[Rfam]
Nucleotides: 303
Base pairs, nucleotide, nucleotide: 001299002298003297004296005295006294007293008292009291010290011288012268013267014266015265016264017263018262020051021050023048024047025046026045027044028043056286057285058284060283061282062281063280064279065173066172067171068170072205073204074203075202077169078168079167080166081165082096083095084094085093086092097111098109099108100107101106112164113163117162118161119158120157121156133146134145135144136143177225178224179223180222187216188215189214190213191212192211199207200206232251233250234249235248236247237246238245239244
Number, partner (000 for none) and nucleotide at each position: 001299g002298a003297a004296g005295u006294u007293g008292g009291c010290c011288a012268g013267a014266c015265a016264a017263u018262c019000g020051c021050u022000g023048c024047c025046u026045g027044u028043c029000u030000c031000u032000c033000a034000g035000c036000a037000a038000u039000g040000a041000a042000g043028g044027g045026c046025g047024g048023g049000g050021a051020g052000a053000g054000g055000a056286a057285a058284g059000u060283c061282c062281g063280g064279g065173c066172u067171c068170c069000a070000c071000a072205g073204a074203g075202c076000a077169g078168g079167a080166u081165g082096c083095c084094g085093g086092u087000u088000a089000a090000u091000g092086g093085c094084c095083g096082g097111c098109c099108g100107c101106c102000g103000a104000a105000a106101g107100g108099u109098g110000a111097g112164g113163a114000a115000u116000a117162g118161g119158g120157c121156c122000a123000c124000a125000g126000a127000g128000a129000c130000g131000a132000g133146c134145g135144u136143a137000u138000u139000a140000a141000g142000u143136u144135a145134c146133g147000g148000u149000g150000a151000a152000a153000c154000g155000c156121g157120g158119u159000a160000a161118c162117c163113u164112c165081c166080a167079u168078c169077c170068g171067g172066a173065g174000c175000a176000a177225g178224a179223c180222c181000a182000a183000a184000u185000a186000g187216g188215c189214a190213g191212g192211c193000g194000a195000u196000g197000a198000c199207g200206c201000u202075g203074c204073u205072c206200g207199c208000a209000g210000a211192g212191c213190c214189u215188g216187u217000g218000g219000g220000u221000a222180g223179g224178u225177c226000g227000c228000u229000c230000g231000a232251g233250c234249g235248c236247a237246u238245g239244g240000g241000c242000a243000a244239c245238u246237g247236u248235g249234c250233g251232c252000c253000u254000a255000g256000a257000g258000g259000a260000a261000u262018g263017a264016u265015u266014g267013u268012c269000c270000a271000c272000g273000a274000c275000a276000g277000a278000a279064c280063c281062c282061g283060g284058c285057u286056u287000a288011u289000c290010g291009g292008c293007c294006a295005g296004c297003u298002u299001c300000u301000u302000c303000u
A member of the RNA family "Bacterial RNase P class A" from Nitrosovibrio tenuis, 303 nucleotides long. It scores 246 bits against the family's covariance model.